[Rfam]
RNA sequence: GCUGAGACUCAGCUGCUGACUCGUUGGUUCGAGAGCUCACCAUUAAGAUCAUCGAUGUCUCCACAUGGUGGUGUGCUUCUGAUCCAACGAUGCGGGAGCUGCAUUCAGUCG
Numbered sequence: 001g002c003u004g005a006g007a008c009u010c011a012g013c014u015g016c017u018g019a020c021u022c023g024u025u026g027g028u029u030c031g032a033g034a035g036c037u038c039a040c041c042a043u044u045a046a047g048a049u050c051a052u053c054g055a056u057g058u059c060u061c062c063a064c065a066u067g068g069u070g071g072u073g074u075g076c077u078u079c080u081g082a083u084c085c086a087a088c089g090a091u092g093c094g095g096g097a098g099c100u101g102c103a104u105u106c107a108g109u110c111g
Stems, first nucleotide, its partner, number of pairs: 001109006010101005016095003021090007029082003034077003038073003042069004
RNA: MIR4414 microRNA precursor family